[Rfam]
RNA: Vibrio RNA VqmR
Organism: Vibrio anguillarum
RNA sequence: UUGAAUAUCAAACACGUUUGAUAUUUGAUAUCCAUGUGGUAUCCCUAUGAAUUUGCAACACCCUCGCAGCAUUCAUAGAACCUCUUCUACACGUCGACAAGAAGCAAUUCUUGUAUUUAUGCCAGCCCUUCUUCAGGCUGGCUUUUUUUAUG
Numbered sequence: 001u002u003g004a005a006u007a008u009c010a011a012a013c014a015c016g017u018u019u020g021a022u023a024u025u026u027g028a029u030a031u032c033c034a035u036g037u038g039g040u041a042u043c044c045c046u047a048u049g050a051a052u053u054u055g056c057a058a059c060a061c062c063c064u065c066g067c068a069g070c071a072u073u074c075a076u077a078g079a080a081c082c083u084c085u086u087c088u089a090c091a092c093g094u095c096g097a098c099a100a101g102a103a104g105c106a107a108u109u110c111u112u113g114u115a116u117u118u119a120u121g122c123c124a125g126c127c128c129u130u131c132u133u134c135a136g137g138c139u140g141g142c143u144u145u146u147u148u149u150a151u152g
Base pairs, nucleotide, nucleotide: 005024006023007022008021010019011018012017027043028042029041030040031039032038051072052071053069054068055067056066097114098113099112100111101110102109121142122141123140124139125138126137127136